[Rfam]
RNA sequence: GCGUUCCUUUCUUUGGUGAUCUAGCUGUAUGAGGUGUUAGAUUUCAUAAAGCUAUAUUACCGAAGUUAGAAAUGC
Number, nucleotide and partner (000 for none) at each position: 001g075002c074003g073004u072005u071006c000007c069008u068009u000010u000011c065012u064013u063014u062015g061016g060017u059018g058019a057020u056021c000022u054023a053024g052025c051026u050027g000028u048029a047030u046031g045032a044033g043034g000035u000036g000037u000038u000039a000040g000041a000042u000043u033044u032045c031046a030047u029048a028049a000050a026051g025052c024053u023054a022055u000056a020057u019058u018059a017060c016061c015062g014063a013064a012065g011066u000067u000068a008069g007070a000071a005072a004073u003074g002075c001

Source information: mir-9/mir-79 microRNA precursor family: a 75-nucleotide sequence from Ladona fulva. Lineage of the source: Eukaryota > Panarthropoda > Mandibulata > Allotriocarida > Ladona. Gene Ontology terms of the family: RISC complex and miRNA-mediated post-transcriptional gene silencing. The family has 214 seed sequences and 5,647 matches in Rfam 15.1.